The record is an 81-nucleotide sequence from Monodelphis domestica, which matches "mir-17 microRNA precursor family" in Rfam. The base pairs follow the family's consensus structure, which was predicted with RNAalifold. NCBI's taxonomy places the organism under Eukaryota, Metazoa, Mammalia, Didelphinae, Monodelphis. The family has 234 seed sequences and 4,687 matches in Rfam 15.1. About the family: This family represents the microRNA (miRNA) precursor mir-17, family, which includes mir-20, mir-91, and mir-103. miRNAs are transcribed as ~70nt precursors (modelled here) and subsequently processed by the Dicer enzyme to give a ~22nt product. In this case the mature sequence comes from the 3' arm of the precursor. The extents of the hairpin precursors are not generally known and are estimated based on hairpin prediction.
[Rfam]
RNA sequence: UUGGGGGGCUCCAAAGUGCUGUUCGUGCAGGUAGUGUGAUAACCUGACCUACUGCUGAGCUAGCACUUCCAGAGCCCCUGG
Numbered sequence: 001u002u003g004g005g006g007g008g009c010u011c012c013a014a015a016g017u018g019c020u021g022u023u024c025g026u027g028c029a030g031g032u033a034g035u036g037u038g039a040u041a042a043c044c045u046g047a048c049c050u051a052c053u054g055c056u057g058a059g060c061u062a063g064c065a066c067u068u069c070c071a072g073a074g075c076c077c078c079u080g081g
Stems, first nucleotide, its partner, number of pairs: 005078004010073002014068008023059001027055002030053005
Dot-bracket structure: ....((((.((..((((((((.(...((.(((((..............)))))))...).))))))))...)).))))...